Source information
Makes More Granules Regulator RNA (mmgR): a 77-nucleotide RNA sequence from Rhizorhabdus dicambivorans. It is annotated as a small RNA. Gene Ontology terms of the family: response to nitrogen compound, DNA-templated transcription, termination and protein binding.
[Rfam]
RNA sequence: AGAACGGGCCUUUCAGGCAUCCUCUCCUAAAACUUUCGGCCGGUUCCUCUUGGGAGCCGGCCUUUUUUUCGUCCCGC
Numbered sequence: 001a002g003a004a005c006g007g008g009c010c011u012u013u014c015a016g017g018c019a020u021c022c023u024c025u026c027c028u029a030a031a032a033c034u035u036u037c038g039g040c041c042g043g044u045u046c047c048u049c050u051u052g053g054g055a056g057c058c059g060g061c062c063u064u065u066u067u068u069u070c071g072u073c074c075c076g077c
Stems, first nucleotide, its partner, number of pairs: 008018004038062009